Rfam assigns this 72-nucleotide sequence from Acidipila rosea to the family "tRNA". The base pairs follow the family's consensus structure, which is taken from published work. The organism belongs to Acidipila, within Bacteria. The family's RNA type in Rfam is transfer RNA. A search with the family's covariance model found it, with a score of 66 bits.

RNA sequence: GCGGCUAUAGUUCAGAGGCAGAACGCCGGUCUGUGGCACCGGAUGUCGUGGGUUCGACCCCCACUAGCCGCC
Numbered sequence: 001g002c003g004g005c006u007a008u009a010g011u012u013c014a015g016a017g018g019c020a021g022a023a024c025g026c027c028g029g030u031c032u033g034u035g036g037c038a039c040c041g042g043a044u045g046u047c048g049u050g051g052g053u054u055c056g057a058c059c060c061c062c063a064c065u066a067g068c069c070g071c072c
Stems, first nucleotide, its partner, number of pairs: 001071007010024004026042005048064005